[Rfam]
FMN riboswitch aptamer (RFN element): a 117-nucleotide sequence from Heliomicrobium modesticaldum. Rfam describes the family as follows. The RFN element is a highly conserved domain that is found frequently in the 5'-untranslated regions of prokaryotic mRNAs that encode for flavin mononucleotide (FMN) biosynthesis and transport proteins. Lineage of the source: Bacteria > Bacillota > Heliobacteriaceae > Heliomicrobium > Heliomicrobium modesticaldum. The family's consensus secondary structure is taken from published work.
RNA sequence: UGUUUUCCUUGGGGACGGGUGCAAUUCCCUACCGGCGGUACAGCCCGCGAGCCCUUCGGGGCAGAUCCGGUGUGAUUCCGGGGCCGACAGUGAUAGUCUGGAUGGGAAGGGGAAACG
Numbered sequence: 001u002g003u004u005u006u007c008c009u010u011g012g013g014g015a016c017g018g019g020u021g022c023a024a025u026u027c028c029c030u031a032c033c034g035g036c037g038g039u040a041c042a043g044c045c046c047g048c049g050a051g052c053c054c055u056u057c058g059g060g061g062c063a064g065a066u067c068c069g070g071u072g073u074g075a076u077u078c079c080g081g082g083g084c085c086g087a088c089a090g091u092g093a094u095a096g097u098c099u100g101g102a103u104g105g106g107a108a109g110g111g112g113a114a115a116c117g
Stems, first nucleotide, its partner, number of pairs: 003115008017029003031097002033086002035048004043084002051062003066082005088100003